[Rfam]
RNA: RAGATH-18 RNA
RNA sequence: ACUGUGGAGUAUUAUAUCAAAUCAAAGUAGUUCUAUAGAACAAAAUGAGAUACGAAGAAACAGUAA
Numbered sequence: 001a002c003u004g005u006g007g008a009g010u011a012u013u014a015u016a017u018c019a020a021a022u023c024a025a026a027g028u029a030g031u032u033c034u035a036u037a038g039a040a041c042a043a044a045a046u047g048a049g050a051u052a053c054g055a056a057g058a059a060a061c062a063g064u065a066a
Stems, first nucleotide, its partner, number of pairs: 001064005009053005022048003030041004